[Rfam]
RNA sequence: UACUUAUCCAGAGUGGUGGAGGGACUGGCCCUAUGAAGCCCAGCAACCUAUUCAAUUAGGUGCUAAUUCCAGCAGGUGUAACCUGAAAGAUGAGCU
Numbered sequence: 001u002a003c004u005u006a007u008c009c010a011g012a013g014u015g016g017u018g019g020a021g022g023g024a025c026u027g028g029c030c031c032u033a034u035g036a037a038g039c040c041c042a043g044c045a046a047c048c049u050a051u052u053c054a055a056u057u058a059g060g061u062g063c064u065a066a067u068u069c070c071a072g073c074a075g076g077u078g079u080a081a082c083c084u085g086a087a088a089g090a091u092g093a094g095c096u
Base pairs, nucleotide, nucleotide: 003094004093005092006091007090008089013041015040016039017038021031022030023029025072026071027070028069042064043063044062045061047060048059050056051055068088073085074084075083076082077081
SAM riboswitch aptamer (S box leader): a 96-nucleotide sequence from Macrococcoides bohemicum. Pairs were carried over by alignment from the consensus structure, which is taken from published work. Taxonomically the source falls in Macrococcoides (Bacteria, Bacilli, Caryophanales, Staphylococcaceae).